RNA sequence: CUGGGAAGCCAGUGAUGUCUUAGCCAUGGUGUCUGAACCUGGCUGAAGGACUCUUGUGAAGAUUCACUCCUAGGCUCUGAGGCUUCCAGGGCA
Numbered sequence: 001c002u003g004g005g006a007a008g009c010c011a012g013u014g015a016u017g018u019c020u021u022a023g024c025c026a027u028g029g030u031g032u033c034u035g036a037a038c039c040u041g042g043c044u045g046a047a048g049g050a051c052u053c054u055u056g057u058g059a060a061g062a063u064u065c066a067c068u069c070c071u072a073g074g075c076u077c078u079g080a081g082g083c084u085u086c087c088a089g090g091g092c093a
Stems, first nucleotide, its partner, number of pairs: 004087007
This 93-nucleotide RNA from Smithornis capensis belongs to the Rfam family "Small nucleolar RNA SNORD91 family". Rfam classes the family as a C/D-box small nucleolar RNA.